[Rfam]
RNA sequence: GUAGCAGGACGGUCGUGUCGCUUGCCGAGGGGGCAUUUUGCCCUGAGCGGCAAGAGGAAAGUCCGGGCAACACAGAGCACCAUACUCUUUAACUGAGAGCUGUCGGUGACGGCAGAGUAACGUGACAGAGAAUGACAGCCUCUGAUCCAUUAUGGUAUCAUGAGGUGAUGGUGAAAAGGCGAGGUAAGAGCUCACCGGAUGCUAUGGCGACAUAGCAUGCCGCACGUCUUAUGGGUUGCAAGGCCAUGUAUACCGGCAAGCGGACUCCUUUCAUAUUGGAGCUGCAAUGGGUUGCUCGCCCAUCGCCGGGGGGUAGGCUGCUCGAGUGCCGAAGCGAAGCCAGGCACCAAUUAGAUAAAUGACUGCGACCGCCGCGGUAACCUGUCAGCAUAACGCUUGACGAGAAGUCCCGCGACGACAUAACCCGGCUUAUAGUCCUGCUGCCUUU
Numbered sequence: 001g002u003a004g005c006a007g008g009a010c011g012g013u014c015g016u017g018u019c020g021c022u023u024g025c026c027g028a029g030g031g032g033g034c035a036u037u038u039u040g041c042c043c044u045g046a047g048c049g050g051c052a053a054g055a056g057g058a059a060a061g062u063c064c065g066g067g068c069a070a071c072a073c074a075g076a077g078c079a080c081c082a083u084a085c086u087c088u089u090u091a092a093c094u095g096a097g098a099g100c101u102g103u104c105g106g107u108g109a110c111g112g113c114a115g116a117g118u119a120a121c122g123u124g125a126c127a128g129a130g131a132a133u134g135a136c137a138g139c140c141u142c143u144g145a146u147c148c149a150u151u152a153u154g155g156u157a158u159c160a161u162g163a164g165g166u167g168a169u170g171g172u173g174a175a176a177a178g179g180c181g182a183g184g185u186a187a188g189a190g191c192u193c194a195c196c197g198g199a200u201g202c203u204a205u206g207g208c209g210a211c212a213u214a215g216c217a218u219g220c221c222g223c224a225c226g227u228c229u230u231a232u233g234g235g236u237u238g239c240a241a242g243g244c245c246a247u248g249u250a251u252a253c254c255g256g257c258a259a260g261c262g263g264a265c266u267c268c269u270u271u272c273a274u275a276u277u278g279g280a281g282c283u284g285c286a287a288u289g290g291g292u293u294g295c296u297c298g299c300c301c302a303u304c305g306c307c308g309g310g311g312g313g314u315a316g317g318c319u320g321c322u323c324g325a326g327u328g329c330c331g332a333a334g335c336g337a338a339g340c341c342a343g344g345c346a347c348c349a350a351u352u353a354g355a356u357a358a359a360u361g362a363c364u365g366c367g368a369c370c371g372c373c374g375c376g377g378u379a380a381c382c383u384g385u386c387a388g389c390a391u392a393a394c395g396c397u398u399g400a401c402g403a404g405a406a407g408u409c410c411c412g413c414g415a416c417g418a419c420a421u422a423a424c425c426c427g428g429c430u431u432a433u434a435g436u437c438c439u440g441c442u443g444c445c446u447u448u
Base pairs, nucleotide, nucleotide: 001444002443003442004441005440006439007438008437009436010435011433012369013368014367015366017363018362019361021054022053023052024051025050026049027048059431060430061429063428064427065426066425067424068238069237070236071235075297076296077295078294080234081233082232083231084230085099086098087097088096089095100115102113103112104111105110116229117228120227121226122225123224124223136170137169138166139165140164141163142162143160144159145158146157178196179195181193182192183191198220199218200217201216202215203214204213205212206211242319243318244317245316253309254308255307256306257305288302289301290300291299292298326347327346328345329344330343331340
Dot-bracket structure: ((((((((((([[[[.[[[.(((((((....................)))))))....(((.(((((((((...[[[[.((((((((((.....)))))(.((((....)))).)((..(((((...........(((((((((((..........)))).)))))..)).......((.(((.......))).)).(((((((((....)))))))).)..))))))))))))))))...((((.......(((((..............................(((((.]]]])))))..)))))......))))......((((((........)..))))).............]]]..]]]]......................................................)))))))).).))))))))))....
A member of the RNA family "Bacterial RNase P class A" from Duncaniella freteri, 448 nucleotides long. The organism belongs to Duncaniella, within Bacteria. The family's consensus secondary structure is taken from published work.